[Rfam]
RNA: Bacteriophage Diversity-Generating Retroelement RNA
RNA sequence: GCUCUGCCGUUGGUGACUCGGCAGGCCGAUCACUUUUCUUGUGGUCAGCCGUUUAUUCCUGCUUUGGCAAAUACACUACGCGGUUCGUCAGAAGGGGGAGUAGCCUUUGUUGAUUGGUCGAAACCCCUGGACGGC
Numbered sequence: 001g002c003u004c005u006g007c008c009g010u011u012g013g014u015g016a017c018u019c020g021g022c023a024g025g026c027c028g029a030u031c032a033c034u035u036u037u038c039u040u041g042u043g044g045u046c047a048g049c050c051g052u053u054u055a056u057u058c059c060u061g062c063u064u065u066g067g068c069a070a071a072u073a074c075a076c077u078a079c080g081c082g083g084u085u086c087g088u089c090a091g092a093a094g095g096g097g098g099a100g101u102a103g104c105c106u107u108u109g110u111u112g113a114u115u116g117g118u119c120g121a122a123a124c125c126c127c128u129g130g131a132c133g134g135c
Stems, first nucleotide, its partner, number of pairs: 001026002004024006013017001060069003083135001085134005094127004103119001104117001